Overview:
The record is a 442-nucleotide part of an RNA from Melioribacter roseus, which matches "Bacterial large subunit ribosomal RNA" in Rfam. The source organism's lineage runs through Bacteria, Pseudomonadati, Ignavibacteriota, Ignavibacteriales and Melioribacter roseus.
RNA sequence: UUCCUCGAAAUAGCUUUAGGGCUAGCGUCAAGUAAAAGUGUGCAGGAGGUAGAGCACUGAUUGGGCUAGGGCUGUCACAACGGUACCAAACCCAGACAAACUCCGAAUUCCUGUCACAUGUUUCUUGGCAGUCAGGCAGUGGGGGAUAAGCUUCAUUGCCGAGAGGGGAACAACCCAGACCGCCAGCUAAGGUCCCUAAAUAGUAGUUAACAGAGAAAGGAUGUUAAGUUGCUCAGACAACUAGGAUGUUGGCUUAGAAGCAGCCAUUCAUUUAAAGAGUGCGUAAUAGCUCACUAGUCAAGCGACUUAGCGUCGACAAUACUCGGGACUUAAACUACUUACCGAAGCUGCGGAUCCUGCUUCUGGCAGGAUGGUAGAGGAACAUUCCAUUCGGCUGCGAAGGCGUGUCGCGAGGCAUGCUGGAGCGAAUGGAAAAGCAAAU
Numbered sequence: 001u002u003c004c005u006c007g008a009a010a011u012a013g014c015u016u017u018a019g020g021g022c023u024a025g026c027g028u029c030a031a032g033u034a035a036a037a038g039u040g041u042g043c044a045g046g047a048g049g050u051a052g053a054g055c056a057c058u059g060a061u062u063g064g065g066c067u068a069g070g071g072c073u074g075u076c077a078c079a080a081c082g083g084u085a086c087c088a089a090a091c092c093c094a095g096a097c098a099a100a101c102u103c104c105g106a107a108u109u110c111c112u113g114u115c116a117c118a119u120g121u122u123u124c125u126u127g128g129c130a131g132u133c134a135g136g137c138a139g140u141g142g143g144g145g146a147u148a149a150g151c152u153u154c155a156u157u158g159c160c161g162a163g164a165g166g167g168g169a170a171c172a173a174c175c176c177a178g179a180c181c182g183c184c185a186g187c188u189a190a191g192g193u194c195c196c197u198a199a200a201u202a203g204u205a206g207u208u209a210a211c212a213g214a215g216a217a218a219g220g221a222u223g224u225u226a227a228g229u230u231g232c233u234c235a236g237a238c239a240a241c242u243a244g245g246a247u248g249u250u251g252g253c254u255u256a257g258a259a260g261c262a263g264c265c266a267u268u269c270a271u272u273u274a275a276a277g278a279g280u281g282c283g284u285a286a287u288a289g290c291u292c293a294c295u296a297g298u299c300a301a302g303c304g305a306c307u308u309a310g311c312g313u314c315g316a317c318a319a320u321a322c323u324c325g326g327g328a329c330u331u332a333a334a335c336u337a338c339u340u341a342c343c344g345a346a347g348c349u350g351c352g353g354a355u356c357c358u359g360c361u362u363c364u365g366g367c368a369g370g371a372u373g374g375u376a377g378a379g380g381a382a383c384a385u386u387c388c389a390u391u392c393g394g395c396u397g398c399g400a401a402g403g404c405g406u407g408u409c410g411c412g413a414g415g416c417a418u419g420c421u422g423g424a425g426c427g428a429a430u431g432g433a434a435a436a437g438c439a440a441a442u
Stems, first nucleotide, its partner, number of pairs: 001382006011024005026131001027129006037122001038119005043113005052104001053102002058098002062094004069087002071084005135160010165176003180353004185349003191343003200340001202339006219314002223311010240298005246271003251265003272276001277292001281290002354372008383437001385434007394426002402421008